[Rfam]
The record is an 87-nucleotide sequence from Sutcliffiella cohnii, which matches "c-di-GMP-I riboswitch aptamer" in Rfam.
GEMM was predicted in a large-scale screen for bacterial structured RNA regulatory elements.
Rfam 15.1 lists 5,092 matches to the family in 1,772 species.
NCBI's taxonomy places the organism under Bacteria, Bacillota, Bacilli, Bacillaceae, Sutcliffiella.
RNA sequence: UGUACGAAAAGGCAAAAUCGUUGAAAAGCGAUGACGCAAAGCUAAGGGGCUAACGUUUUAAACUAACUACGCUCGCCAGCUACCGAU
Numbered sequence: 001u002g003u004a005c006g007a008a009a010a011g012g013c014a015a016a017a018u019c020g021u022u023g024a025a026a027a028g029c030g031a032u033g034a035c036g037c038a039a040a041g042c043u044a045a046g047g048g049g050c051u052a053a054c055g056u057u058u059u060a061a062a063c064u065a066a067c068u069a070c071g072c073u074c075g076c077c078a079g080c081u082a083c084c085g086a087u
Base pairs, nucleotide, nucleotide: 012037013036017032018031019030020029021028022027040081041080042079043078046077047076048073049072050071055067056066057065